RNA sequence: AGGAAAUGAGGAGUGGUUAAUUACUCGCUUAUUUAAAUAUGCGAGAAGAGCGUUUCGCUCAGCCUGUUACGACAACUGAGCGCUCUCCUUCUUUUACAAUCUGAUCCC
Number, nucleotide and partner (000 for none) at each position: 001a000002g107003g106004a105005a000006a000007u000008g000009a000010g000011g000012a000013g000014u099015g000016g097017u096018u000019a000020a000021u000022u000023a000024c045025u044026c043027g042028c041029u000030u000031a000032u000033u000034u000035a000036a000037a000038u000039a000040u000041g028042c027043g026044a025045g024046a000047a086048g085049a084050g083051c082052g081053u080054u079055u000056c000057g000058c000059u000060c000061a000062g000063c000064c078065u000066g076067u075068u000069a000070c000071g000072a000073c000074a000075a067076c066077u000078g064079a054080g053081c052082g051083c050084u049085c048086u047087c000088c000089u000090u000091c000092u000093u000094u000095u000096a017097c016098a000099a014100u000101c000102u000103g000104a000105u004106c003107c002108c000
This 108-nucleotide RNA from Eutrema salsugineum belongs to the Rfam family "Small nucleolar RNA Z279/snoR105/snoR108". From the family's description: This family includes the plant snoRNAs known as Z279, snoR105 and snoR108. The match comes from Rfam's covariance-model search (82 bits). Its family is annotated with RNA processing and nucleolus in the Gene Ontology. Its Rfam clan is "snoU13 clan". Pairs were carried over by alignment from the consensus structure, which was predicted with PFOLD. For this family Rfam cites "Experimental RNomics: identification of 140 candidates for small non-messenger RNAs in the plant Arabidopsis thaliana" (Marker et al., Curr Biol, 2002).